The record is a 204-nucleotide sequence, which matches "Epstein-Barr virus nuclear antigen (EBNA) IRES" in Rfam.
Its family is annotated with ribosome binding in the Gene Ontology.
Pairs were carried over by alignment from the consensus structure, which was predicted with PFOLD.
This family represents an Epstein-Barr virus internal ribosome entry site (IRES) which is found in the U leader exon in the 5' UTR of the Epstein-Barr nuclear antigen 1 (EBNA1) gene.
RNA sequence: GGGCCCCCCGGUAUCGGGCCAGAGGUAACUUAGGAAGCGUUUCUUGAGCUUCCCUGGGAUGAGCGUUUGGGAGAGCUGAUUCUGCAGCCCAGAGAGUAGUCUCAGGGCAUCCUCUGGAGCCUGACCUGUGAUCGUCGCAUCAUAGACCGCCAGUAGACCUGGGAGCAGAUUCACCGCCGCGGCCGUCUCCUUUAAGACCCACCA
Dot-bracket structure: ((...)).............................(((......(((..((((..............)))).....((....((...((..............)))).))))).((...(((..(((((((......)))))))....((((.....))))...))).....))..)))........................
Numbered sequence: 001g002g003g004c005c006c007c008c009c010g011g012u013a014u015c016g017g018g019c020c021a022g023a024g025g026u027a028a029c030u031u032a033g034g035a036a037g038c039g040u041u042u043c044u045u046g047a048g049c050u051u052c053c054c055u056g057g058g059a060u061g062a063g064c065g066u067u068u069g070g071g072a073g074a075g076c077u078g079a080u081u082c083u084g085c086a087g088c089c090c091a092g093a094g095a096g097u098a099g100u101c102u103c104a105g106g107g108c109a110u111c112c113u114c115u116g117g118a119g120c121c122u123g124a125c126c127u128g129u130g131a132u133c134g135u136c137g138c139a140u141c142a143u144a145g146a147c148c149g150c151c152a153g154u155a156g157a158c159c160u161g162g163g164a165g166c167a168g169a170u171u172c173a174c175c176g177c178c179g180c181g182g183c184c185g186u187c188u189c190c191u192u193u194a195a196g197a198c199c200c201a202c203c204a
Stems, first nucleotide, its partner, number of pairs: 001007002037180003046114003051072004078111002084108002089106002116175002121168003126145007150162004